[Rfam]
U5 spliceosomal RNA: a 118-nucleotide RNA from Anisodus acutangulus. On this family, see Zwieb, Nucleic Acids Res 1997: "The uRNA database". The family's RNA type in Rfam is spliceosomal small nuclear RNA. Pairs were carried over by alignment from the consensus structure, which is taken from published work. It scores 76 bits against the family's covariance model.
RNA sequence: AGCCACGCGGUGGGCACAAAGCGAAUUAUUCUUUCGCCUUUUACUAAAGAAUACCGUGUGCGUGCGCAAUCAGUGGCAUACGCCUAUUUUUUGAGGGAAUUUUCUUAACUGAGGAUCC
Numbered sequence: 001a002g003c004c005a006c007g008c009g010g011u012g013g014g015c016a017c018a019a020a021g022c023g024a025a026u027u028a029u030u031c032u033u034u035c036g037c038c039u040u041u042u043a044c045u046a047a048a049g050a051a052u053a054c055c056g057u058g059u060g061c062g063u064g065c066g067c068a069a070u071c072a073g074u075g076g077c078a079u080a081c082g083c084c085u086a087u088u089u090u091u092u093g094a095g096g097g098a099a100u101u102u103u104c105u106u107a108a109c110u111g112a113g114g115a116u117c118c
Base pairs, nucleotide, nucleotide: 003076004075005074006073008066009065011064012063014061015060016059017058018057027053028052029051030050031049032048033047034046095118097117098116100114101113102112